[Rfam]
RNA: Group II catalytic intron D1-D4-6
Organism: Roseimaritima multifibrata
RNA sequence: UGAACCCCGCCUGGGUAAACGCUAGCCACGUGCCCAGUAUCGAGAGUUGCAGCGGUUGUAUAAGGCCUUCGGUCGAAGUCGCCGCUUCCGCGUACAUCAAAAGGUAGUGAGGGUGAAGCGAUCAUCGGUGGCCCUGCGACGUUGAAUGGAUUUUGGAUUUGCUCCGAAAUUUGGUAACUGUGGGAUUCUGCCCGAGGUUUGUGAAUACCUGGAGGCAACAUCUUUUGCAGCAUUGAUGGCAAGCUGUAAGAGAAGACCCGGGGGCAGCGGCCC
Numbered sequence: 001u002g003a004a005c006c007c008c009g010c011c012u013g014g015g016u017a018a019a020c021g022c023u024a025g026c027c028a029c030g031u032g033c034c035c036a037g038u039a040u041c042g043a044g045a046g047u048u049g050c051a052g053c054g055g056u057u058g059u060a061u062a063a064g065g066c067c068u069u070c071g072g073u074c075g076a077a078g079u080c081g082c083c084g085c086u087u088c089c090g091c092g093u094a095c096a097u098c099a100a101a102a103g104g105u106a107g108u109g110a111g112g113g114u115g116a117a118g119c120g121a122u123c124a125u126c127g128g129u130g131g132c133c134c135u136g137c138g139a140c141g142u143u144g145a146a147u148g149g150a151u152u153u154u155g156g157a158u159u160u161g162c163u164c165c166g167a168a169a170u171u172u173g174g175u176a177a178c179u180g181u182g183g184g185a186u187u188c189u190g191c192c193c194g195a196g197g198u199u200u201g202u203g204a205a206u207a208c209c210u211g212g213a214g215g216c217a218a219c220a221u222c223u224u225u226u227g228c229a230g231c232a233u234u235g236a237u238g239g240c241a242a243g244c245u246g247u248a249a250g251a252g253a254a255g256a257c258c259c260g261g262g263g264g265c266a267g268c269g270g271c272c273c
Stems, first nucleotide, its partner, number of pairs: 012036004019031003023242001025240002038103001040101001044098002046095002048092002159267001162263005183258002187256003190216003195210004221253011